The record is a 74-nucleotide sequence from Serinicoccus hydrothermalis, which matches "tRNA" in Rfam. It is annotated as a transfer RNA. A search with the family's covariance model found it, with a score of 59 bits. Transfer RNA (tRNA) molecules are approximately 80 nucleotides in length.

[Rfam]
RNA sequence: GCCCCCGUAGCCCAAUCGGCAGAGGCAGCCCACUUAAAAUGGGCGCAGUGCGGGUUCGAGUCCCGCCGGGGGCA
Numbered sequence: 001g002c003c004c005c006c007g008u009a010g011c012c013c014a015a016u017c018g019g020c021a022g023a024g025g026c027a028g029c030c031c032a033c034u035u036a037a038a039a040u041g042g043g044c045g046c047a048g049u050g051c052g053g054g055u056u057c058g059a060g061u062c063c064c065g066c067c068g069g070g071g072g073c074a
Stems, first nucleotide, its partner, number of pairs: 001073007010026003028044005050066005